[Rfam]
RNA sequence: AACGUUCAUCCCGCUGGCUAGAUGAUGGAAAUACCACCCUGGUCAGGGGACGGAAGUAGGGGUAUUCCCGAAGGAACGCGCC
Number, nucleotide and partner (000 for none) at each position: 001a000002a000003c078004g077005u076006u075007c074008a000009u050010c049011c048012c047013g000014c000015u000016g000017g000018c000019u000020a000021g000022a000023u000024g000025a000026u000027g000028g000029a000030a000031a000032u000033a000034c000035c000036a000037c000038c000039c000040u000041g000042g000043u000044c000045a000046g000047g012048g011049g010050a009051c000052g000053g079054a000055a000056g000057u000058a000059g069060g068061g067062g000063u000064a000065u000066u000067c061068c060069c059070g000071a000072a000073g000074g007075a006076a005077c004078g003079c053080g000081c000082c000
The record is an 82-nucleotide RNA from Leptolyngbyaceae cyanobacterium M65_K2018_010, which matches "Glutamine riboswitch aptamer (glnA leader)" in Rfam.
The family's consensus secondary structure is taken from published work.
Rfam links the family to the GO term glutamine binding.